[Rfam]
RNA: Plastid-psbA-4 3UTR RNA
Organism: Rubus takesimensis
RNA sequence: GAAAGUAAAGGAGCAAUUAUUAAUUUCUUGUUAUAUCAAGAGAUUGUGUAUUGCUCCUUUACUA
Dot-bracket structure: ......(((((((((((....((.((((((......)))))).))....)))))))))))....